[Rfam]
RNA sequence: CGACCCGCACAACGGCUUCCUGGCGUGCGGGCGCAACCCUGAUACCGGAGCG
Numbered sequence: 001c002g003a004c005c006c007g008c009a010c011a012a013c014g015g016c017u018u019c020c021u022g023g024c025g026u027g028c029g030g031g032c033g034c035a036a037c038c039c040u041g042a043u044a045c046c047g048g049a050g051c052g
Stems, first nucleotide, its partner, number of pairs: 004031007013022002015051003019048002

Background
The record is a 52-nucleotide RNA sequence from Oceaniovalibus guishaninsula, which matches "SAM/SAH riboswitch aptamer" in Rfam. For this family Rfam cites "The structure of the SAM/SAH-binding riboswitch" (Weickhmann et al., Nucleic Acids Res, 2019). Taxonomically the source falls in Oceaniovalibus guishaninsula (Bacteria, Pseudomonadati, Alphaproteobacteria, Oceaniovalibus). A search with the family's covariance model found it, with a score of 40 bits.